[Rfam]
Streptomyces-metK RNA: a 112-nucleotide RNA from Streptomyces harbinensis.
Taxonomically the source falls in Streptomyces (Bacteria, Actinomycetota, Kitasatosporales, Streptomycetaceae).
The family's consensus secondary structure is taken from published work.
It scores 51 bits against the family's covariance model.
RNA sequence: ACGGGAUUCGGCUGUCCAGCGCCCCCGAGUCGAUAGACUCACUCCGACGACCUCCGGAGCUUCCGGAGCGGGUCGGUCCAGUUCAGUCAGCAGCCGCUGCAACCCCAGGGAG
Numbered sequence: 001a002c003g004g005g006a007u008u009c010g011g012c013u014g015u016c017c018a019g020c021g022c023c024c025c026c027g028a029g030u031c032g033a034u035a036g037a038c039u040c041a042c043u044c045c046g047a048c049g050a051c052c053u054c055c056g057g058a059g060c061u062u063c064c065g066g067a068g069c070g071g072g073u074c075g076g077u078c079c080a081g082u083u084c085a086g087u088c089a090g091c092a093g094c095c096g097c098u099g100c101a102a103c104c105c106c107a108g109g110g111a112g
Base pairs, nucleotide, nucleotide: 048075049074050073051072052071053070054066055065056064057063058062088099089098090097091096